[Rfam]
RNA sequence: CCUGUUGAUGAUGAUGAACUGGUAUCAUUCAUUCUUUCCGGUCUUGAUUCAGAUUACAACCCCAUUUUUUCCUCUGUUUUGAGCCGGACAGAUCCCAUCUCUAUUGGUGAUCUCUUCUCUCAACUCCUGACCUAUGAGU
Numbered sequence: 001c002c003u004g005u006u007g008a009u010g011a012u013g014a015u016g017a018a019c020u021g022g023u024a025u026c027a028u029u030c031a032u033u034c035u036u037u038c039c040g041g042u043c044u045u046g047a048u049u050c051a052g053a054u055u056a057c058a059a060c061c062c063c064a065u066u067u068u069u070u071c072c073u074c075u076g077u078u079u080u081g082a083g084c085c086g087g088a089c090a091g092a093u094c095c096c097a098u099c100u101c102u103a104u105u106g107g108u109g110a111u112c113u114c115u116u117c118u119c120u121c122a123a124c125u126c127c128u129g130a131c132c133u134a135u136g137a138g139u
Stems, first nucleotide, its partner, number of pairs: 005137003088108002091105003

Rfam assigns this 139-nucleotide RNA sequence from Panicum virgatum to the family "Small nucleolar RNA Z247". On this family, see Chen et al., Nucleic Acids Res 2003: "The high diversity of snoRNAs in plants: identification and comparative study of 120 snoRNA genes from Oryza sativa". Lineage of the source: Eukaryota > Embryophyta > Tracheophyta > Magnoliopsida > Panicum sect. Hiantes. Gene Ontology terms of the family: nucleolus and RNA processing. The family's RNA type in Rfam is C/D-box small nucleolar RNA.